A member of the RNA family "skipping-rope RNA", 79 nucleotides long.
RNA sequence: GGGAUUAGAGGACGGAACGGGCAGCCGUCACCCCUCGAAAGAGGUUAGGACAUGUGGGAAUGUCGCCCCACCUAAUUCC
Numbered sequence: 001g002g003g004a005u006u007a008g009a010g011g012a013c014g015g016a017a018c019g020g021g022c023a024g025c026c027g028u029c030a031c032c033c034c035u036c037g038a039a040a041g042a043g044g045u046u047a048g049g050a051c052a053u054g055u056g057g058g059a060a061u062g063u064c065g066c067c068c069c070a071c072c073u074a075a076u077u078c079c
Base pairs, nucleotide, nucleotide: 001079002078003077004076005075006074007073008072011029012028013027014026015025020064021063022062023061031049033044034043035042036041054071055070056069057068058067
Pairs were carried over by alignment from the consensus structure, which is taken from published work. The family's RNA type in Rfam is small RNA.